[Rfam]
This 106-nucleotide RNA sequence from Oceanobacillus piezotolerans belongs to the Rfam family "SAM riboswitch aptamer (S box leader)".
RNA sequence: UCCUUAUCAAGAGUCGGGGUAGGAACCUGGUCCGUGGAUCCCGCAGCAACCAUUACUUAUGUAAUAAGGUGCUAAUUCCAGCAAGCAUUUGCUUGAACGAUGAGGG
Numbered sequence: 001u002c003c004u005u006a007u008c009a010a011g012a013g014u015c016g017g018g019g020u021a022g023g024a025a026c027c028u029g030g031u032c033c034g035u036g037g038a039u040c041c042c043g044c045a046g047c048a049a050c051c052a053u054u055a056c057u058u059a060u061g062u063a064a065u066a067a068g069g070u071g072c073u074a075a076u077u078c079c080a081g082c083a084a085g086c087a088u089u090u091g092c093u094u095g096a097a098c099g100a101u102g103a104g105g106g
Stems, first nucleotide, its partner, number of pairs: 001106008013044001015043004022033003027081004045073004050069002052065004082095005